Source information: This 95-nucleotide sequence from Pseudovibrio exalbescens belongs to the Rfam family "TPP riboswitch aptamer (THI element)". The match comes from Rfam's covariance-model search (65 bits). The family's consensus secondary structure is taken from published work. The organism belongs to Pseudovibrio, within Bacteria.
Nucleotides: 095
Stems, first nucleotide, its partner, number of pairs: 006083003010079001011043004016037001017029004049074003055068004
Number, partner (000 for none) and nucleotide at each position: 001000u002000g003000g004000c005000g006083u007082g008081a009000a010079c011043c012042g013041g014040g015000g016037u017029g018028c019027c020026c021000u022000u023000g024000u025000u026020g027019g028018g029017c030000u031000g032000a033000g034000a035000u036000c037016a038000u039000a040014c041013c042012c043011g044000u045000a046000u047000g048000a049074c050073c051072u052000g053000a054000u055068c056067u057066g058065g059000a060000u061000a062000a063000u064000g065058c066057c067056a068055g069000c070000g071000a072051a073050g074049g075000g076000a077000g078000c079010g080000a081008u082007c083006a084000c085000a086000u087000g088000g089000c090000a091000g092000a093000c094000a095000g